The family of this 73-nucleotide RNA from Leptobacterium flavescens is "Flavo-1 RNA". Rfam classes the family as a small RNA. Lineage of the source: Bacteria > Pseudomonadati > Flavobacteriia > Flavobacteriaceae > Leptobacterium. The match comes from Rfam's covariance-model search (55 bits).
RNA sequence: AUUUAACCCGCGUUAGGGAUUGAAGCGGUAUCCUUUUUGAAUCAAAAAGAUAUAGCGGAAAGCCCGGCCUUUU
Numbered sequence: 001a002u003u004u005a006a007c008c009c010g011c012g013u014u015a016g017g018g019a020u021u022g023a024a025g026c027g028g029u030a031u032c033c034u035u036u037u038u039g040a041a042u043c044a045a046a047a048a049g050a051u052a053u054a055g056c057g058g059a060a061a062g063c064c065c066g067g068c069c070u071u072u073u
Base pairs, nucleotide, nucleotide: 016065017064018063020061021060025056026055030051031050032049036046037045038044039043